[Rfam]
RNA sequence: ACACAAAAUUGUGACCGAGCCUGGAUGACCUAAGUGACCAUAUGGUUCCCAGGCCGUGGCAACUAAGCCACCAGGGUAGCUGUGAGAAAUCGCGCUACCUCCCGUGUUUGGAAAGGUGACACAUGACUGAGCUG
Numbered sequence: 001a002c003a004c005a006a007a008a009u010u011g012u013g014a015c016c017g018a019g020c021c022u023g024g025a026u027g028a029c030c031u032a033a034g035u036g037a038c039c040a041u042a043u044g045g046u047u048c049c050c051a052g053g054c055c056g057u058g059g060c061a062a063c064u065a066a067g068c069c070a071c072c073a074g075g076g077u078a079g080c081u082g083u084g085a086g087a088a089a090u091c092g093c094g095c096u097a098c099c100u101c102c103c104g105u106g107u108u109u110g111g112a113a114a115g116g117u118g119a120c121a122c123a124u125g126a127c128u129g130a131g132c133u134g
Stems, first nucleotide, its partner, number of pairs: 003128001011120002014117003019054006028046003034041002056071005074100006081094005101111002
Molybdenum/Tungsten riboswitch aptamer (Moco RNA motif): a 134-nucleotide RNA from Ferrimonas sediminicola. Taxonomically the source falls in Ferrimonas (Bacteria, Pseudomonadati, Pseudomonadota, Ferrimonadaceae). The family's consensus secondary structure is taken from published work.